[Rfam]
RNA sequence: CUACCUCGAACGGGAGAGACCUCUCACAGGCGCCGAAGGAGCAACCCUCCCCGGAAACUCUCAGGCAAACGGACCGUUCGAGCAGG
Number, nucleotide and partner (000 for none) at each position: 001c000002u000003a000004c000005c000006u081007c080008g079009a078010a077011c076012g075013g074014g000015a000016g000017a000018g000019a000020c030021c029022u028023c000024u000025c000026a000027c000028a022029g021030g020031c000032g066033c065034c064035g062036a061037a000038g000039g060040a059041g058042c000043a000044a000045c054046c053047c000048u000049c000050c000051c000052c000053g046054g045055a000056a000057a000058c041059u040060c039061u036062c035063a000064g034065g033066c032067a000068a000069a000070c000071g000072g000073a000074c013075c012076g011077u010078u009079c008080g007081a006082g000083c000084a000085g000086g000

The record is an 86-nucleotide sequence from Catenulispora acidiphila, which matches "Glycine riboswitch aptamer" in Rfam.
Rfam links the family to the GO term glycine biosynthetic process.
NCBI's taxonomy places the organism under Bacteria, Actinomycetes, Catenulisporales, Catenulisporaceae, Catenulispora acidiphila.
It scores 72 bits against the family's covariance model.
Rfam's curators write: This family represents the bacterial glycine riboswitch.
The pairing is the family consensus, mapped onto this sequence.